[Rfam]
RNA sequence: GGUCCAAUGGUGUAGGGGUUAUCACACAAGAUUCUGAUGUAAUCCGAUUUCUUGUGACCCAGGUUCGAUUCCUGGUUGGACCU
Numbered sequence: 001g002g003u004c005c006a007a008u009g010g011u012g013u014a015g016g017g018g019u020u021a022u023c024a025c026a027c028a029a030g031a032u033u034c035u036g037a038u039g040u041a042a043u044c045c046g047a048u049u050u051c052u053u054g055u056g057a058c059c060c061a062g063g064u065u066c067g068a069u070u071c072c073u074g075g076u077u078g079g080a081c082c083u
Stems, first nucleotide, its partner, number of pairs: 001082007010025003027054005059075005
A member of the RNA family "tRNA" from Rhizopogon vesiculosus, 83 nucleotides long. A search with the family's covariance model found it, with a score of 54 bits.